[Rfam]
RNA: Small nucleolar RNA SNORA20
RNA sequence: UUUCCCAUUUGUUUGCUGCUGUGGUGUCCCAAUGCUAUGAGUCGUUCUAUGCAUGGGAUAAACUAAUACUGGGCCGUUGUAAACGGAGAUGAAGUAAUAGUGUCAUCUCUCCUGCAUGGUCUAGACAUCG
Numbered sequence: 001u002u003u004c005c006c007a008u009u010u011g012u013u014u015g016c017u018g019c020u021g022u023g024g025u026g027u028c029c030c031a032a033u034g035c036u037a038u039g040a041g042u043c044g045u046u047c048u049a050u051g052c053a054u055g056g057g058a059u060a061a062a063c064u065a066a067u068a069c070u071g072g073g074c075c076g077u078u079g080u081a082a083a084c085g086g087a088g089a090u091g092a093a094g095u096a097a098u099a100g101u102g103u104c105a106u107c108u109c110u111c112c113u114g115c116a117u118g119g120u121c122u123a124g125a126c127a128u129c130g
Base pairs, nucleotide, nucleotide: 003058004057005056006055007054008053015045016044018042019041020040022037023036069124070123071122072121073120074119075118076117078116079115080114081113086109087108088107089106090105091104092103094101095100